[Rfam]
RNA: mir-128 microRNA precursor family
Organism: Acipenser ruthenus
RNA sequence: GGGUGUUUGGAGCCGGGGCCGGAGCACUGUCUGAGAGGGGUACAAUUCUCACAGUGAACCGGUCUCUUUUCCAGCCACUCC
Numbered sequence: 001g002g003g004u005g006u007u008u009g010g011a012g013c014c015g016g017g018g019c020c021g022g023a024g025c026a027c028u029g030u031c032u033g034a035g036a037g038g039g040g041u042a043c044a045a046u047u048c049u050c051a052c053a054g055u056g057a058a059c060c061g062g063u064c065u066c067u068u069u070u071c072c073a074g075c076c077a078c079u080c081c
Stems, first nucleotide, its partner, number of pairs: 007074004015066007025056006033050003